[Rfam]
RNA sequence: AAAGUUCAAUACGGAGAAGAUGUGGCGAGUCACUCUGGCCCCGAGUCAUGCGGCGUGCACUGCGAAGUGCACGUCGAAGCGUUGACAGGGGAAACCGACAGGCCAGACAUUGAGCCGCGAAAUAAUUACUCCGGGAUGCCGACGCUGUUAAGCGAAGCGGAAGGCAACAUGGCACACGGCGUCAAUCGCAAGUCGUGUGCUGAUCUCGCGCGGUCGGAGACCC
Dot-bracket structure: ...........(((((..(((.[.[[..))).))))).((((..(((((((((((((((((....)))))))))))...)).)))).))))...................((.((((((............(((((((((..((((.........))))...)))....(((((((((((.......]].])))))))))))))))))))))))).)......
RNA: Group II catalytic intron D1-D4-6